[Rfam]
Annotation: The record is a 117-nucleotide sequence from Denitromonas iodatirespirans, which matches "ALIL pseudoknot" in Rfam. The family's consensus secondary structure is taken from published work. The organism belongs to Denitromonas, within Bacteria.
RNA sequence: CGCGUUUUUCGCCCAGGCGGAGCUCGACCGCCGAUUCAAGUCCUGAGAGCGUUCGUCGAUCAGCAUUGCGAUACCUUCGGGGUCGAGCCGAUCUGCCGGCAAUUGCAGAUCGCCCCG
Numbered sequence: 001c002g003c004g005u006u007u008u009u010c011g012c013c014c015a016g017g018c019g020g021a022g023c024u025c026g027a028c029c030g031c032c033g034a035u036u037c038a039a040g041u042c043c044u045g046a047g048a049g050c051g052u053u054c055g056u057c058g059a060u061c062a063g064c065a066u067u068g069c070g071a072u073a074c075c076u077u078c079g080g081g082g083u084c085g086a087g088c089c090g091a092u093c094u095g096c097c098g099g100c101a102a103u104u105g106c107a108g109a110u111c112g113c114c115c116c117g
Stems, first nucleotide, its partner, number of pairs: 016032005078117005089112002092109005098103001